[Rfam]
This 511-nucleotide RNA from Streptomyces sp. SDr-06 belongs to the Rfam family "Saccharopolyspora sRNA 350". The family's RNA type in Rfam is antisense RNA. It scores 140 bits against the family's covariance model. The literature on the family includes a 2013 paper in PLoS One by Liu et al., "Prediction and characterization of small non-coding RNAs related to secondary metabolites in Saccharopolyspora erythraea". The organism belongs to Streptomyces, within Bacteria. The family has 2 seed sequences and 1,170 matches in Rfam 15.1.
RNA sequence: GUGACGGUGUGCUCCCAGCGGGCGCCCUCGUCCAGCAGGGCCUGCUCCCCGAAGCGGUCGCCGUCGGCGAGCACGUCCAGGGCGAGUUCGUCACCGUACGCGCCGACGGUGGUCUGCCCGACGCGGCCGUGGGCGAUCAGGUGCAGCCGGUCCGCGGGGGCGCCGCGCUCGACCAGCGUCUCACCGCCGCGGAAGUCGCGCUGGACGCACCGGUCGGCGAGGGCGGUCAGCACCUCGAUGUCGUCGAAGCCACGCAGCAGGGCCAGUUCACCGAGUUCGCGCGGGAUGACGCGGACGUCGGCACCGUCCUGCACGAAGUCCACCUUCCCGUCGCCGACGGUGUAGGUGAGGCGGCGGUUCACCCGGUAGACGCCGCCCUUGGUCUCCACCCAGGGGAGCAUCCGCAGCAGCCAGCGAGAGCUGAUCUCCUGCAUCUGCGGGGCGGACUUGGCCGUGGUGGCGAGGUUGCGUGCGGCCGCCGUGCUCAGGCUGGAUUGUCGUGGUGGUUCGA
Numbered sequence: 001g002u003g004a005c006g007g008u009g010u011g012c013u014c015c016c017a018g019c020g021g022g023c024g025c026c027c028u029c030g031u032c033c034a035g036c037a038g039g040g041c042c043u044g045c046u047c048c049c050c051g052a053a054g055c056g057g058u059c060g061c062c063g064u065c066g067g068c069g070a071g072c073a074c075g076u077c078c079a080g081g082g083c084g085a086g087u088u089c090g091u092c093a094c095c096g097u098a099c100g101c102g103c104c105g106a107c108g109g110u111g112g113u114c115u116g117c118c119c120g121a122c123g124c125g126g127c128c129g130u131g132g133g134c135g136a137u138c139a140g141g142u143g144c145a146g147c148c149g150g151u152c153c154g155c156g157g158g159g160g161c162g163c164c165g166c167g168c169u170c171g172a173c174c175a176g177c178g179u180c181u182c183a184c185c186g187c188c189g190c191g192g193a194a195g196u197c198g199c200g201c202u203g204g205a206c207g208c209a210c211c212g213g214u215c216g217g218c219g220a221g222g223g224c225g226g227u228c229a230g231c232a233c234c235u236c237g238a239u240g241u242c243g244u245c246g247a248a249g250c251c252a253c254g255c256a257g258c259a260g261g262g263c264c265a266g267u268u269c270a271c272c273g274a275g276u277u278c279g280c281g282c283g284g285g286a287u288g289a290c291g292c293g294g295a296c297g298u299c300g301g302c303a304c305c306g307u308c309c310u311g312c313a314c315g316a317a318g319u320c321c322a323c324c325u326u327c328c329c330g331u332c333g334c335c336g337a338c339g340g341u342g343u344a345g346g347u348g349a350g351g352c353g354g355c356g357g358u359u360c361a362c363c364c365g366g367u368a369g370a371c372g373c374c375g376c377c378c379u380u381g382g383u384c385u386c387c388a389c390c391c392a393g394g395g396g397a398g399c400a401u402c403c404g405c406a407g408c409a410g411c412c413a414g415c416g417a418g419a420g421c422u423g424a425u426c427u428c429c430u431g432c433a434u435c436u437g438c439g440g441g442g443c444g445g446a447c448u449u450g451g452c453c454g455u456g457g458u459g460g461c462g463a464g465g466u467u468g469c470g471u472g473c474g475g476c477c478g479c480c481g482u483g484c485u486c487a488g489g490c491u492g493g494a495u496u497g498u499c500g501u502g503g504u505g506g507u508u509c510g511a
Stems, first nucleotide, its partner, number of pairs: 006390004011385001014382002018328001021325002024320001026318001028316002035312007046303001049301004054233001058229001060227005065111002068108001075103001077102001080099001082097003117222002122217001127212001129210002135206001137204004141199003146196002152192006158185002161178002165174001235295002240290006251281001253279002256277003260271001262269001329342004351379001353377005360372001363369001391431007399423002403418001405416001407415001437476002440473001442471003446467001447465003451461002477510002480505003484500001486497003
Rfam links the family to the GO term regulation of secondary metabolite biosynthetic process.